[Rfam]
RNA sequence: UCCAAACAGAGAGAAGAUUCAUGGUUGCGUUGAGGUUUUCGGUACUUCUUGGCCGUCCGUUGUUGGUCCGGUCCACUGCUAGAUUUCGGCCCAAGCUAUGUCGGAAUAUUUCCUUUGCUCUAGGAUACGGAUACGAUCAUGUUAAUUGGAGCUGCCAAGCAUCAAAGGAUCAGAAGUAGUGGUGAGAUCCUAUCCAUUGGCUUAUACUGCUAACUCAACCCAAUUCUCCUAUCUCUUGGAUUCAGAAAACAACAUGGCGUCCAGAACGGGACCCAUCUCGAGUUGGAGUCAAAGCUUAGCGCUUGUCUGUUCCGGGUAGCGCUGUGCUGUCUGUCUGCUUUCAUGGUCGGAGAACUUGGCUUUUGUUAGCUGUGGACGGUCGGAGGGUCUUUGAGGUUUAGGACAAGCCCUAUGGUUUGGUAGUCCUGGGUUGUCUCGCCGGUAAAACGGUGAAGGCAACCCCUCCGAGUUUUUGGGG
Number, nucleotide and partner (000 for none) at each position: 001u000002c000003c000004a000005a000006a000007c000008a000009g000010a000011g000012a000013g000014a000015a000016g000017a000018u000019u000020c000021a000022u000023g000024g000025u000026u000027g000028c000029g000030u000031u000032g000033a000034g000035g000036u000037u000038u000039u000040c000041g000042g000043u000044a000045c000046u000047u000048c000049u000050u000051g000052g000053c000054c000055g000056u000057c000058c000059g000060u000061u000062g000063u000064u000065g000066g000067u000068c000069c000070g000071g000072u000073c000074c000075a000076c000077u000078g000079c000080u000081a000082g000083a000084u000085u000086u000087c000088g000089g000090c000091c000092c000093a000094a000095g000096c000097u000098a000099u000100g000101u000102c000103g000104g000105a000106a000107u000108a000109u000110u000111u000112c000113c000114u000115u000116u000117g000118c000119u000120c000121u000122a000123g000124g000125a000126u000127a000128c000129g000130g000131a000132u000133a000134c000135g000136a000137u000138c000139a000140u000141g000142u000143u000144a000145a000146u000147u000148g000149g000150a000151g000152c000153u000154g000155c000156c000157a000158a000159g000160c000161a000162u000163c000164a000165a000166a000167g000168g000169a000170u000171c000172a000173g000174a000175a000176g000177u000178a000179g000180u000181g000182g000183u000184g000185a000186g000187a000188u000189c000190c000191u000192a000193u000194c000195c000196a000197u000198u000199g000200g000201c000202u000203u000204a000205u000206a000207c000208u000209g000210c000211u000212a000213a000214c000215u000216c000217a000218a000219c000220c000221c000222a000223a000224u000225u000226c000227u000228c000229c000230u000231a000232u000233c000234u000235c000236u000237u000238g000239g000240a000241u000242u000243c000244a000245g000246a000247a000248a000249a000250c000251a000252a000253c000254a000255u000256g000257g000258c000259g000260u000261c000262c000263a000264g000265a000266a000267c000268g000269g000270g290271a289272c288273c286274c285275a284276u000277c000278u000279c000280g000281a000282g000283u000284u275285g274286g273287a000288g272289u271290c270291a000292a304293a303294g302295c301296u000297u000298a000299g000300c000301g295302c294303u293304u292305g000306u000307c000308u000309g000310u000311u000312c000313c000314g000315g000316g000317u000318a000319g000320c000321g000322c000323u000324g000325u000326g000327c000328u000329g000330u000331c000332u000333g000334u000335c000336u000337g000338c000339u000340u000341u000342c000343a000344u000345g000346g000347u000348c000349g000350g000351a000352g000353a000354a000355c000356u000357u000358g000359g000360c000361u000362u000363u000364u000365g000366u000367u000368a000369g000370c000371u000372g000373u000374g000375g000376a000377c000378g000379g000380u000381c000382g000383g000384a000385g000386g000387g000388u000389c000390u000391u000392u000393g000394a000395g000396g000397u000398u000399u000400a000401g000402g000403a000404c000405a000406a000407g000408c000409c000410c000411u000412a000413u000414g000415g000416u000417u000418u000419g000420g000421u000422a000423g000424u000425c000426c000427u000428g000429g000430g000431u000432u000433g000434u000435c000436u000437c000438g000439c000440c000441g000442g000443u000444a000445a000446a000447a000448c000449g000450g000451u000452g000453a000454a000455g000456g000457c000458a000459a000460c000461c000462c000463c000464u000465c000466c000467g000468a000469g000470u000471u000472u000473u000474u000475g000476g000477g000478g000
RNA: Ascomycota telomerase RNA, nucleotides 1400 to 1877